[Rfam]
RNA sequence: ACCAAUAAAGGUAAUGGUGUCCUACCUACCUAACCGCCCGUAACAAGGCUGAUGGCGCCUACAAAUUA
Numbered sequence: 001a002c003c004a005a006u007a008a009a010g011g012u013a014a015u016g017g018u019g020u021c022c023u024a025c026c027u028a029c030c031u032a033a034c035c036g037c038c039c040g041u042a043a044c045a046a047g048g049c050u051g052a053u054g055g056c057g058c059c060u061a062c063a064a065a066u067u068a
Base pairs, nucleotide, nucleotide: 010026011025012024013023016059017058018057019056020055021054036049037048038047
Source information:
Shown here is a 68-nucleotide sequence from Taibaiella soli, a member of the family "Fluoride riboswitch aptamer (crcB RNA motif)". Gene Ontology terms of the family: response to fluoride and positive regulation of gene expression. It scores 50 bits against the family's covariance model. The source organism's lineage runs through Bacteria, Bacteroidota, Chitinophagia, Chitinophagales and Taibaiella. The family has 289 seed sequences and 2,293 matches in Rfam 15.1.